[Rfam]
RNA sequence: CCAGCGACCCCGCGCUGCUGCCUGACCCCCGACCUGGUAGCAACGCGGGGUCUUCGC
Dot-bracket structure: .(.(..((((((((.(((((((.............))))))).))))))))..).).
Numbered sequence: 001c002c003a004g005c006g007a008c009c010c011c012g013c014g015c016u017g018c019u020g021c022c023u024g025a026c027c028c029c030c031g032a033c034c035u036g037g038u039a040g041c042a043a044c045g046c047g048g049g050g051u052c053u054u055c056g057c
Stems, first nucleotide, its partner, number of pairs: 002056001004054001007051008016042007
Shown here is a 57-nucleotide RNA from Rhodococcus gordoniae, a member of the family "F6 TB sRNA". For this family Rfam cites "Identification of small RNAs in Mycobacterium tuberculosis" (Arnvig and Young, Mol Microbiol, 2009). The source organism's lineage runs through Bacteria, Actinomycetes, Mycobacteriales, Nocardiaceae and Rhodococcus.